[Rfam]
RNA sequence: GGAGACUUGCGGAAGGCUGUCCCUAGUACGAGAGGACCGGGACGGACGAACCUCUGGUAUGCCAGUUGUCACGCCAGUGGCAUGGCUGGUUGGCUACGUUCGGAAGGGAUAACCGCUGAAGGCAUCUAAGCGGGAAGCCUGUUCCUAGAUGAGGUCUCCCACCCCUUUGUGGGUUAAGGCUCCCAGUAGACCACUGGGUUGAUAGGCCAGACAUGGACGCACGGUAACGUGUUUUUGAGUGGACUGGUACUAAUCGGCCGAGG
Numbered sequence: 001g002g003a004g005a006c007u008u009g010c011g012g013a014a015g016g017c018u019g020u021c022c023c024u025a026g027u028a029c030g031a032g033a034g035g036a037c038c039g040g041g042a043c044g045g046a047c048g049a050a051c052c053u054c055u056g057g058u059a060u061g062c063c064a065g066u067u068g069u070c071a072c073g074c075c076a077g078u079g080g081c082a083u084g085g086c087u088g089g090u091u092g093g094c095u096a097c098g099u100u101c102g103g104a105a106g107g108g109a110u111a112a113c114c115g116c117u118g119a120a121g122g123c124a125u126c127u128a129a130g131c132g133g134g135a136a137g138c139c140u141g142u143u144c145c146u147a148g149a150u151g152a153g154g155u156c157u158c159c160c161a162c163c164c165c166u167u168u169g170u171g172g173g174u175u176a177a178g179g180c181u182c183c184c185a186g187u188a189g190a191c192c193a194c195u196g197g198g199u200u201g202a203u204a205g206g207c208c209a210g211a212c213a214u215g216g217a218c219g220c221a222c223g224g225u226a227a228c229g230u231g232u233u234u235u236u237g238a239g240u241g242g243a244c245u246g247g248u249a250c251u252a253a254u255c256g257g258c259c260g261a262g263g
Base pairs, nucleotide, nucleotide: 001159002158003157004156005155006154007153008152011145012144013143014142017045018044019043020042021041022040023039047102048101049100050099051098055096056095057094062089063088064087065086066085067082068081069080070079071078072077106140107139108138113133114132115131116130117129162173163172164171175261178259179258180257181256182198183197184196185195186194203252204251205250206248207247208246209245210244212241213240216236219232220231221230222229223228